[Rfam]
The record is a 99-nucleotide sequence from Clostridium sp. KNHs216, which matches "azaaromatic riboswitch aptamer (yjdF RNA)" in Rfam. The family's consensus secondary structure is taken from published work.
RNA sequence: UCGCACAAAGAUAAAAACACAGUUCCGGUUGGUAGUCCGGACGCGGCAAACGCUGUCAGUAACCUGCCUCCUUGGUUGUCCGUUCUUUGUAAGGUACAC
Numbered sequence: 001u002c003g004c005a006c007a008a009a010g011a012u013a014a015a016a017a018c019a020c021a022g023u024u025c026c027g028g029u030u031g032g033u034a035g036u037c038c039g040g041a042c043g044c045g046g047c048a049a050a051c052g053c054u055g056u057c058a059g060u061a062a063c064c065u066g067c068c069u070c071c072u073u074g075g076u077u078g079u080c081c082g083u084u085c086u087u088u089g090u091a092a093g094g095u096a097c098a099c
Stems, first nucleotide, its partner, number of pairs: 005090007022042002025040004043056005066076003